RNA sequence: CGUCACUGUCGCACUUAAAGGUGCAAGACAGACCGGGAAACCAAAGCCCGGACCGGAACACCAACAAGCACCGGCCAGCGAGAACGCAGAUCGGUCAUACAAAAAAUUUCGGAUGUACGCGCAGAGCAGGAGGCUCUGCGAAAUCCC
Numbered sequence: 001c002g003u004c005a006c007u008g009u010c011g012c013a014c015u016u017a018a019a020g021g022u023g024c025a026a027g028a029c030a031g032a033c034c035g036g037g038a039a040a041c042c043a044a045a046g047c048c049c050g051g052a053c054c055g056g057a058a059c060a061c062c063a064a065c066a067a068g069c070a071c072c073g074g075c076c077a078g079c080g081a082g083a084a085c086g087c088a089g090a091u092c093g094g095u096c097a098u099a100c101a102a103a104a105a106a107u108u109u110c111g112g113a114u115g116u117a118c119g120c121g122c123a124g125a126g127c128a129g130g131a132g133g134c135u136c137u138g139c140g141a142a143a144u145c146c147c
Stems, first nucleotide, its partner, number of pairs: 006031005011024004033051005120140008
The record is a 147-nucleotide RNA, which matches "proV RNA" in Rfam. It is one of the family's seed sequences. The family's consensus secondary structure is taken from published work.